[Rfam]
RNA: U12 minor spliceosomal RNA
Organism: Brenthis ino
RNA sequence: GUGCCUCAAUCUAUUGAGUAAGGAAAUUAUUGGGCCCCGGUAACUCUGGGCAAUGUCCUAACGGGCGACCGUAUUUUUGUAGGGUAUAGGUUGUCCCCUUGAGUCGCGGGCCUACUUUGCACGUGAUUCGGGUGAAGCGAUCUGCCCU
Numbered sequence: 001g002u003g004c005c006u007c008a009a010u011c012u013a014u015u016g017a018g019u020a021a022g023g024a025a026a027u028u029a030u031u032g033g034g035c036c037c038c039g040g041u042a043a044c045u046c047u048g049g050g051c052a053a054u055g056u057c058c059u060a061a062c063g064g065g066c067g068a069c070c071g072u073a074u075u076u077u078u079g080u081a082g083g084g085u086a087u088a089g090g091u092u093g094u095c096c097c098c099u100u101g102a103g104u105c106g107c108g109g110g111c112c113u114a115c116u117u118u119g120c121a122c123g124u125g126a127u128u129c130g131g132g133u134g135a136a137g138c139g140a141u142c143u144g145c146c147c148u
Stems, first nucleotide, its partner, number of pairs: 004023003008019001034051004039046001054067005081148005088143007097132002101129005107123002110120002